[Rfam]
RNA sequence: GCCGAUUAACCAAGCGUUAAGCUUUCUGAACUAUUACUGGCGUCGGUCCAGUUUUCGACCGCGAGUGGCCCUGUCCACUCUGUUUGACGCAUCCCUGUCUAUGACUUCCGAGCCGCCUCCGGGCGGCUCUUUUUUU
Numbered sequence: 001g002c003c004g005a006u007u008a009a010c011c012a013a014g015c016g017u018u019a020a021g022c023u024u025u026c027u028g029a030a031c032u033a034u035u036a037c038u039g040g041c042g043u044c045g046g047u048c049c050a051g052u053u054u055u056c057g058a059c060c061g062c063g064a065g066u067g068g069c070c071c072u073g074u075c076c077a078c079u080c081u082g083u084u085u086g087a088c089g090c091a092u093c094c095c096u097g098u099c100u101a102u103g104a105c106u107u108c109c110g111a112g113c114c115g116c117c118u119c120c121g122g123g124c125g126g127c128u129c130u131u132u133u134u135u136u
Stems, first nucleotide, its partner, number of pairs: 001041003004011001013035002018033002023028001046059003063080006086099004110129008